[Rfam]
RNA sequence: UAAUGCUAAGGUCAAAAGCCUGAAACCACGAUGUGCUUGCACAAAAGUGGUUUUAUGGCUUAAUGACCUGCACCGAUAUGAGCAUAAAAGUGGAGCGUAAGCUUCACGAUAUGCGAAUGUCGGAUAGAAUUGUGAGAGUACGAAGUACGGAACAAUUCUUAAGGCAUUA
Numbered sequence: 001u002a003a004u005g006c007u008a009a010g011g012u013c014a015a016a017a018g019c020c021u022g023a024a025a026c027c028a029c030g031a032u033g034u035g036c037u038u039g040c041a042c043a044a045a046a047g048u049g050g051u052u053u054u055a056u057g058g059c060u061u062a063a064u065g066a067c068c069u070g071c072a073c074c075g076a077u078a079u080g081a082g083c084a085u086a087a088a089a090g091u092g093g094a095g096c097g098u099a100a101g102c103u104u105c106a107c108g109a110u111a112u113g114c115g116a117a118u119g120u121c122g123g124a125u126a127g128a129a130u131u132g133u134g135a136g137a138g139u140a141c142g143a144a145g146u147a148c149g150g151a152a153c154a155a156u157u158c159u160u161a162a163g164g165c166a167u168u169a
Stems, first nucleotide, its partner, number of pairs: 001169007010068004016061005021055009032043004073123007082114004090107007127158007138148004
Description
This 169-nucleotide RNA sequence from Firmicutes bacterium CAG:56 belongs to the Rfam family "Clostridiales-1 RNA". The base pairs follow the family's consensus structure, which is taken from published work. The match comes from Rfam's covariance-model search (130 bits).